[Rfam]
RNA: mir-544 microRNA precursor family
RNA sequence: AUGACCUGGGCAUCUUGUUAAAAUGCAGAUUCUGACUCAGUCGGUCCUGGGUGGGGCCUGAGAUUCUGCAUUUCUAAUAAGAUCCUAGGUGAUACUGA
Dot-bracket structure: ...((...((...((((((((((.(((((.(((...........................))).))))).))).)))))))..))...))........